RNA: Mammalian CPEB3 ribozyme
Organism: Alligator mississippiensis
RNA sequence: AGAGGUUUUAAAUUUAAGGCCAUAGCAGAAGUGCUUAUGGCGUGGUCUGUCAGAUUCCAAUGAAUCUGCAAAUUCUCUU
Numbered sequence: 001a002g003a004g005g006u007u008u009u010a011a012a013u014u015u016a017a018g019g020c021c022a023u024a025g026c027a028g029a030a031g032u033g034c035u036u037a038u039g040g041c042g043u044g045g046u047c048u049g050u051c052a053g054a055u056u057c058c059a060a061u062g063a064a065u066c067u068g069c070a071a072a073u074u075c076u077c078u079u
Stems, first nucleotide, its partner, number of pairs: 018047004024079002027076004031043003051068007